RNA sequence: CGCCAACCGUUGGGGUGCCUGCAUUGGCUGAGAGGUGUCUACCACCAACCCAUCGAACCUGAUCCGGGCAAUUCCGGCGUAGGAAACGGUCUUAGUCACAGG
Numbered sequence: 001c002g003c004c005a006a007c008c009g010u011u012g013g014g015g016u017g018c019c020u021g022c023a024u025u026g027g028c029u030g031a032g033a034g035g036u037g038u039c040u041a042c043c044a045c046c047a048a049c050c051c052a053u054c055g056a057a058c059c060u061g062a063u064c065c066g067g068g069c070a071a072u073u074c075c076g077g078c079g080u081a082g083g084a085a086a087c088g089g090u091c092u093u094a095g096u097c098a099c100a101g102g
Stems, first nucleotide, its partner, number of pairs: 006090005011052004017028003035045003058083004064077004
RNA: TPP riboswitch aptamer (THI element)
Organism: Falsiruegeria litorea